RNA sequence: UCCCGCUGCCCUCUUUGGGCGUUUCCUCCCUAGACUUCGGGCCGCCCUUAGGGGCGGCUUUUUUUUGUUCUAGA
Numbered sequence: 001u002c003c004c005g006c007u008g009c010c011c012u013c014u015u016u017g018g019g020c021g022u023u024u025c026c027u028c029c030c031u032a033g034a035c036u037u038c039g040g041g042c043c044g045c046c047c048u049u050a051g052g053g054g055c056g057g058c059u060u061u062u063u064u065u066u067g068u069u070c071u072a073g074a
Stems, first nucleotide, its partner, number of pairs: 008020004040059008
This 74-nucleotide sequence from Methylorubrum extorquens belongs to the Rfam family "Makes More Granules Regulator RNA (mmgR)". The family has 87 seed sequences and 1,791 matches in Rfam 15.1. Rfam links the family to the GO terms response to nitrogen compound, DNA-templated transcription, termination and protein binding. The source organism's lineage runs through Bacteria, Alphaproteobacteria, Hyphomicrobiales, Methylorubrum and Methylorubrum extorquens. SuhB later renamed mmgR (makes more granules regulator) was a putative non-coding RNA found multiple times in the Agrobacterium tumefaciens genome and related alpha-proteobacteria. Other non-coding RNAs uncovered in the same analysis include: speF, ybhL, metA, and serC.Several studies inSinorhizobium meliloti showed that suhB element is indeed a non-coding RNA:firstly it was detected on Northern blot and called Sm8RNA, secondly in an RNAseq study referred to as SmelC689.The mutant phenotype's (strain lacking the small RNA) cytoplasm contains higher content of polyhydroxybutyrate (PBH)storage granules than wild type strain. The sRNA is required to limit the PBH intracellular accumulation when the nitrogen-fixing Sinorhizobium meliloti is under condition of surplus carbon in relation to nitrogen. The pairing is the family consensus, mapped onto this sequence. Clan: suhB sRNA clan.